Shown here is an 81-nucleotide RNA from Synaphobranchus kaupii, a member of the family "mir-23 microRNA precursor family". Rfam 15.1 lists 1,403 matches to the family in 646 species. Taxonomically the source falls in Synaphobranchus (Eukaryota, Gnathostomata, Synaphobranchidae, Synaphobranchinae). Its family is annotated with gene silencing by miRNA and RISC complex in the Gene Ontology. Pairs were carried over by alignment from the consensus structure, which was predicted with PFOLD.
[Rfam]
RNA sequence: GGCAGAGUGGGUCCCUCGCGAUGUGAUUUGAUUCAAAACCCAAAAAACCGAAAUCACAUUGCCAGGGAUUUCCACUCUGUC
Numbered sequence: 001g002g003c004a005g006a007g008u009g010g011g012u013c014c015c016u017c018g019c020g021a022u023g024u025g026a027u028u029u030g031a032u033u034c035a036a037a038a039c040c041c042a043a044a045a046a047a048c049c050g051a052a053a054u055c056a057c058a059u060u061g062c063c064a065g066g067g068a069u070u071u072c073c074a075c076u077c078u079g080u081c
Stems, first nucleotide, its partner, number of pairs: 001081002004078003008074003011069006018062012